Annotation: This 67-nucleotide sequence from Agrilus planipennis belongs to the Rfam family "mir-33 microRNA precursor family". Pairs were carried over by alignment from the consensus structure, which was predicted with PFOLD. Taxonomically the source falls in Agrilus (Eukaryota, Hexapoda, Dicondylia, Endopterygota). Gene Ontology terms of the family: gene silencing by miRNA and RISC complex. The family has 73 seed sequences and 1,467 matches in Rfam 15.1.
RNA sequence: UCCGGGUGCAUUGUAGUUGCAUUGCAUGUCAGGUUAUUCAGUGCAGUGUUUCUGCAGUGCAGCUUGA
Numbered sequence: 001u002c003c004g005g006g007u008g009c010a011u012u013g014u015a016g017u018u019g020c021a022u023u024g025c026a027u028g029u030c031a032g033g034u035u036a037u038u039c040a041g042u043g044c045a046g047u048g049u050u051u052c053u054g055c056a057g058u059g060c061a062g063c064u065u066g067a
Base pairs, nucleotide, nucleotide: 001067002066004064006063007061008060009059010058011057012056013055014054015053016052019049021047022046023045024044025043026042027041
Dot-bracket structure: ((.(.(((((((((((..(.(((((((.............))))))).)..)))))))))).)).))